[Rfam]
RNA sequence: UCGCGGCCGUCAGGAGAGAGUGCCCCACCUUCGAUGAAGGCAGCGCGGCACCGCCGAAGGCGCAGGCAGCAGCCGAACGCUCAGGCAAAAGGACUGACAACCGCCC
Numbered sequence: 001u002c003g004c005g006g007c008c009g010u011c012a013g014g015a016g017a018g019a020g021u022g023c024c025c026c027a028c029c030u031u032c033g034a035u036g037a038a039g040g041c042a043g044c045g046c047g048g049c050a051c052c053g054c055c056g057a058a059g060g061c062g063c064a065g066g067c068a069g070c071a072g073c074c075g076a077a078c079g080c081u082c083a084g085g086c087a088a089a090a091g092g093a094c095u096g097a098c099a100a101c102c103g104c105c106c
Stems, first nucleotide, its partner, number of pairs: 006101001009098005020051004053086003056082002060080003066073002
RNA: Glycine riboswitch aptamer
Organism: Acidovorax temperans